[Rfam]
RNA: Histone 3' UTR stem-loop
Organism: Apteryx australis
RNA sequence: ACAACGGCUCUUUUAAGAGCCACUCAAGCUUUUCCAAAAGGAGCUG
Numbered sequence: 001a002c003a004a005c006g007g008c009u010c011u012u013u014u015a016a017g018a019g020c021c022a023c024u025c026a027a028g029c030u031u032u033u034c035c036a037a038a039a040g041g042a043g044c045u046g
Base pairs, nucleotide, nucleotide: 006021007020008019009018010017011016